[Rfam]
Annotation:
This 109-nucleotide RNA from Anaerosolibacter carboniphilus belongs to the Rfam family "SAM riboswitch aptamer (S box leader)".
RNA sequence: UGUCUAUCAAGAGUGGUGGAGGGACUGGCCCUGAGAAACCCGGCAACCGGCGGUUGUAUAUUUACGCACGGUGCUAAAUCCUGCAGAAUUCAAUUCUGACAGAUAGAAG
Numbered sequence: 001u002g003u004c005u006a007u008c009a010a011g012a013g014u015g016g017u018g019g020a021g022g023g024a025c026u027g028g029c030c031c032u033g034a035g036a037a038a039c040c041c042g043g044c045a046a047c048c049g050g051c052g053g054u055u056g057u058a059u060a061u062u063u064a065c066g067c068a069c070g071g072u073g074c075u076a077a078a079u080c081c082u083g084c085a086g087a088a089u090u091c092a093a094u095u096c097u098g099a100c101a102g103a104u105a106g107a108a109g
Base pairs, nucleotide, nucleotide: 001109003107004106005105006104007103008102013041015040016039017038021031022030023029025083027081028080042075043074044073045072047071048070050067051066052065079101084098085097086096087095088094089093